[Rfam]
RNA sequence: GGGCUUGUUUGGAUUUGACGGCAAGACGGAAUGGUACGUAAGCACGCGGAGCGUCGUUAGUUUGCUCCUUAAUAUCAGCUAUCAAACAAUUAAUUGGCGAAAACAAUUACGCUCUCGCUGCCUAACCGAAGUACAGUAGGUUACUGGCUUUAUCCGACUAUUAGAUAGUUGGACGAGACAUCGCUCCGAGGAUGUGGUUCCGAAUCCAGAGAUCAAGCGAUGCAGGUUCAAUCGGAAAUAGUCAGUGUAUGCCUCGAUGCACUGAUGAAGAUUUAGAGGAUAAGAUGUUGGUUGGUGGUCCAGGUCUUGCCGACAUACGAAAAUCGAAGGCUGGAAUAAACGUGUAGAAAGCGUAUGGUUUCCUUGUGCGGACGUGGGUUCGACUCCCACCAGGUCCACAU
Numbered sequence: 001g002g003g004c005u006u007g008u009u010u011g012g013a014u015u016u017g018a019c020g021g022c023a024a025g026a027c028g029g030a031a032u033g034g035u036a037c038g039u040a041a042g043c044a045c046g047c048g049g050a051g052c053g054u055c056g057u058u059a060g061u062u063u064g065c066u067c068c069u070u071a072a073u074a075u076c077a078g079c080u081a082u083c084a085a086a087c088a089a090u091u092a093a094u095u096g097g098c099g100a101a102a103a104c105a106a107u108u109a110c111g112c113u114c115u116c117g118c119u120g121c122c123u124a125a126c127c128g129a130a131g132u133a134c135a136g137u138a139g140g141u142u143a144c145u146g147g148c149u150u151u152a153u154c155c156g157a158c159u160a161u162u163a164g165a166u167a168g169u170u171g172g173a174c175g176a177g178a179c180a181u182c183g184c185u186c187c188g189a190g191g192a193u194g195u196g197g198u199u200c201c202g203a204a205u206c207c208a209g210a211g212a213u214c215a216a217g218c219g220a221u222g223c224a225g226g227u228u229c230a231a232u233c234g235g236a237a238a239u240a241g242u243c244a245g246u247g248u249a250u251g252c253c254u255c256g257a258u259g260c261a262c263u264g265a266u267g268a269a270g271a272u273u274u275a276g277a278g279g280a281u282a283a284g285a286u287g288u289u290g291g292u293u294g295g296u297g298g299u300c301c302a303g304g305u306c307u308u309g310c311c312g313a314c315a316u317a318c319g320a321a322a323a324u325c326g327a328a329g330g331c332u333g334g335a336a337u338a339a340a341c342g343u344g345u346a347g348a349a350a351g352c353g354u355a356u357g358g359u360u361u362c363c364u365u366g367u368g369c370g371g372a373c374g375u376g377g378g379u380u381c382g383a384c385u386c387c388c389a390c391c392a393g394g395u396c397c398a399c400a401u
Base pairs, nucleotide, nucleotide: 001397002396003395004394005393006392007391019370020369021367022366023365024364025363030360031359032358034356035355036354037353038352039351043344044343045342046341048068049067050066051065052064056083058081059080060079061078062077150176151175153173154172155171156170157169158168179222180221181220182219183218184217190207191206192205193204198237199236200235201234202233242265243264244263245262246261247260248259252279253278254277255276285316286315287314288313289312290311291310292309294306295305296304299335300334301333303331374390375389376388377387378386